[Rfam]
RNA: mir-186 microRNA precursor family
Organism: Monodelphis domestica
RNA sequence: ACCUUCCAAAGAAUUCUCCUUUUGGGCUUUUGAUUCUUAAUUUCAGCCCAAAGGUGAAUUUUUUGGGA
Dot-bracket structure: ...(((((((((((((.(((((.(((((................)))))))))).)))))))))))))